About this RNA
A member of the RNA family "Histidine operon leader" from Shewanella loihica, 121 nucleotides long. About the family: At least 6 amino acid operons are known to be regulated by attenuation. On this family, see Kolter and Yanofsky, Annu Rev Genet 1982: "Attenuation in amino acid biosynthetic operons". Gene Ontology term of the family: histidine biosynthetic process.

[Rfam]
RNA sequence: CCAUCAUCACCAUCAUAUGCGGUAGCCUUCGGAUGCUUACUGCCGGAGGACUAUUUCCUUCUGGCGGUUGAUUCAAAAGCGAUCUAAGACCCCUGGAAGGAAUUCCGGGGGUUUUUAGUUU
Numbered sequence: 001c002c003a004u005c006a007u008c009a010c011c012a013u014c015a016u017a018u019g020c021g022g023u024a025g026c027c028u029u030c031g032g033a034u035g036c037u038u039a040c041u042g043c044c045g046g047a048g049g050a051c052u053a054u055u056u057c058c059u060u061c062u063g064g065c066g067g068u069u070g071a072u073u074c075a076a077a078a079g080c081g082a083u084c085u086a087a088g089a090c091c092c093c094u095g096g097a098a099g100g101a102a103u104u105c106c107g108g109g110g111g112u113u114u115u116u117a118g119u120u121u
Stems, first nucleotide, its partner, number of pairs: 008042002011035004021030001043064007083118001086115013